The family of this 149-nucleotide RNA sequence from Brachypodium distachyon is "Small nucleolar RNA snoR145". The base pairs follow the family's consensus structure, which was predicted with mfold.
RNA sequence: AAGCGAAGAUCCCAGCAGAGGGGCGUGAUUCUCCGUCGUUGAGGCCUCUCUAACAACAAUUAAUCUUCGCAGAGGAACGAGACGCCGUGGAUUUGUGGAUGUGUGAUUUAUUCUGGUUCUGUCACAUCUGUUGCCAUGGCUACAUCAUU
Numbered sequence: 001a002a003g004c005g006a007a008g009a010u011c012c013c014a015g016c017a018g019a020g021g022g023g024c025g026u027g028a029u030u031c032u033c034c035g036u037c038g039u040u041g042a043g044g045c046c047u048c049u050c051u052a053a054c055a056a057c058a059a060u061u062a063a064u065c066u067u068c069g070c071a072g073a074g075g076a077a078c079g080a081g082a083c084g085c086c087g088u089g090g091a092u093u094u095g096u097g098g099a100u101g102u103g104u105g106a107u108u109u110a111u112u113c114u115g116g117u118u119c120u121g122u123c124a125c126a127u128c129u130g131u132u133g134c135c136a137u138g139g140c141u142a143c144a145u146c147a148u149u
Stems, first nucleotide, its partner, number of pairs: 003070007011020001013018001025050001027048001031043003035039001084140007098128002101125003106120001
Dot-bracket structure: ..(((((((.(.(....).)....(.(...(((.(...).)))....).).............))))))).............(((((((.......((.(((..(.............)..))).)).....))))))).........

About this RNA
The source organism's lineage runs through Eukaryota, Viridiplantae, Tracheophyta, Euphyllophyta and Brachypodium. Rfam classes the family as an H/ACA-box small nucleolar RNA. The match comes from Rfam's covariance-model search (69 bits). Gene Ontology terms of the family: nucleolus and RNA processing.